[Rfam]
RNA: SAM (S-adenosyl methionine) riboswitch aptamer
Organism: Rhodococcus sp. RD6.2
RNA sequence: CUUCACGAGUGCCGUCGCCAAGCCCCGACUGGACGGCCGCCAACCCCACGCUCGCGGGUGGCUCGGGUGACGAAGUGGCUGGCACCACCCGGUGUCGGCACGAGCGCCCC
Numbered sequence: 001c002u003u004c005a006c007g008a009g010u011g012c013c014g015u016c017g018c019c020a021a022g023c024c025c026c027g028a029c030u031g032g033a034c035g036g037c038c039g040c041c042a043a044c045c046c047c048a049c050g051c052u053c054g055c056g057g058g059u060g061g062c063u064c065g066g067g068u069g070a071c072g073a074a075g076u077g078g079c080u081g082g083c084a085c086c087a088c089c090c091g092g093u094g095u096c097g098g099c100a101c102g103a104g105c106g107c108c109c110c
Stems, first nucleotide, its partner, number of pairs: 001075004009038001011037006021030002039062003044058003078099009
Dot-bracket structure: ((((....(.((((((....((......)).)))))))(((..(((.........))).))).........))))..(((((((((....)))))))))...........